[Rfam]
RNA sequence: AGAUGAAUUGCCGGGCAAAUCUCCUUUGGCAGUGAGCUAUCUAAGCUCACUCUAUAUAAAAACUGCGCAGCAGAAGGCCAGCAAGCAGUCAACUGCCAAAGGAGUAAUUGCCCAGUAAUGCAGCC
Numbered sequence: 001a002g003a004u005g006a007a008u009u010g011c012c013g014g015g016c017a018a019a020u021c022u023c024c025u026u027u028g029g030c031a032g033u034g035a036g037c038u039a040u041c042u043a044a045g046c047u048c049a050c051u052c053u054a055u056a057u058a059a060a061a062a063c064u065g066c067g068c069a070g071c072a073g074a075a076g077g078c079c080a081g082c083a084a085g086c087a088g089u090c091a092a093c094u095g096c097c098a099a100a101g102g103a104g105u106a107a108u109u110g111c112c113c114a115g116u117a118a119u120g121c122a123g124c125c
Base pairs, nucleotide, nucleotide: 005121007119008118009117011115013113014112015111016110017109018108021104022103023102024101027098028097029096030095031094032093033092